[Rfam]
RNA sequence: CCUCCGGUUCUUUUCAGAACCACACAUAUACUCACAAAAAGAGAUU
Numbered sequence: 001c002c003u004c005c006g007g008u009u010c011u012u013u014u015c016a017g018a019a020c021c022a023c024a025c026a027u028a029u030a031c032u033c034a035c036a037a038a039a040a041g042a043g044a045u046u
Stems, first nucleotide, its partner, number of pairs: 006021006
Dot-bracket structure: .....((((((....)))))).........................